[Rfam]
Shown here is a 90-nucleotide sequence from Enterococcus asini, a member of the family "TPP riboswitch aptamer (THI element)". Vitamin B(1) in its active form thiamin pyrophosphate (TPP) is an essential coenzyme that is synthesised by coupling of pyrimidine and thiazole moieties in bacteria.
Nucleotides: 090
Stems, first nucleotide, its partner, number of pairs: 006078005011040004016034001017026003046071004053064003
Number, partner (000 for none) and nucleotide at each position: 001000a002000g003000g004000a005000a006078a007077c008076a009075u010074u011040u012039g013038g014037g015000g016034u017026g018025c019024u020000g021000a022000c023000u024019a025018g026017c027000u028000g029000a030000g031000a032000u033000u034016a035000u036000a037014c038013c039012c040011a041000u042000u043000g044000a045000a046071c047070c048069u049068g050000a051000u052000a053064c054063a055062g056000u057000u058000a059000a060000g061000a062055c063054u064053g065000g066000c067000g068049c069048a070047g071046g072000g073000a074010a075009a076008u077007g078006u079000c080000u081000g082000u083000g084000a085000u086000a087000u088000a089000c090000a